[Rfam]
RNA sequence: UUCUCUGAUGAUGAUCAAACUAAUACUUUCGUUCUUCUGAAAUUCUCGGUGUGGAAGAACUGGAGACCUGAACUGAGGAGAC
Numbered sequence: 001u002u003c004u005c006u007g008a009u010g011a012u013g014a015u016c017a018a019a020c021u022a023a024u025a026c027u028u029u030c031g032u033u034c035u036u037c038u039g040a041a042a043u044u045c046u047c048g049g050u051g052u053g054g055a056a057g058a059a060c061u062g063g064a065g066a067c068c069u070g071a072a073c074u075g076a077g078g079a080g081a082c
Stems, first nucleotide, its partner, number of pairs: 003080004

Rfam assigns this 82-nucleotide RNA sequence from Brachypodium distachyon to the family "Small nucleolar RNA Z159/U59". Its family is annotated with RNA processing and nucleolus in the Gene Ontology. A search with the family's covariance model found it, with a score of 75 bits. The base pairs follow the family's consensus structure, which was predicted with PFOLD. The source organism's lineage runs through Eukaryota, Streptophytina, Magnoliopsida, Poaceae and Brachypodium. The family is grouped with related families in Rfam's "SNORD59 clan".